[Rfam]
RNA sequence: UGAGGCCCCUCACUCACUGUCGAAGAUCCCCGAUGGACGAGGGGUGGCAGGGAUC
Numbered sequence: 001u002g003a004g005g006c007c008c009c010u011c012a013c014u015c016a017c018u019g020u021c022g023a024a025g026a027u028c029c030c031c032g033a034u035g036g037a038c039g040a041g042g043g044g045u046g047g048c049a050g051g052g053a054u055c
Stems, first nucleotide, its partner, number of pairs: 006044006014036003018032001025055006
Notes
This 55-nucleotide RNA from Myotis brandtii belongs to the Rfam family "Antizyme RNA frameshifting stimulation element". Rfam links the family to the GO term translational frameshifting. On this family, see Ivanov et al., J Mol Biol 2004: "Identification of a new antizyme mRNA +1 frameshifting stimulatory pseudoknot in a subset of diverse invertebrates and its apparent absence in intermediate species".